This 70-nucleotide RNA from Propionicimonas paludicola belongs to the Rfam family "Fluoride riboswitch aptamer (crcB RNA motif)".
The match comes from Rfam's covariance-model search (41 bits).
[Rfam]
RNA sequence: GUGGUCGCCGGUGAUGGAUCCCACCAGGGCUCGCCCGAACCGCCGUCCGGCUGAUGGUUCCUGUGCGUCU
Number, nucleotide and partner (000 for none) at each position: 001g000002u000003g000004g000005u000006c000007g000008c000009c000010g025011g024012u023013g022014a000015u000016g061017g060018a059019u000020c057021c056022c013023a012024c011025c010026a000027g000028g000029g000030c000031u000032c000033g000034c000035c000036c000037g000038a000039a000040c000041c000042g051043c050044c049045g000046u000047c000048c000049g044050g043051c042052u000053g000054a000055u000056g021057g020058u000059u018060c017061c016062u000063g000064u000065g000066c000067g000068u000069c000070u000

Overview: Its family is annotated with response to fluoride and positive regulation of gene expression in the Gene Ontology.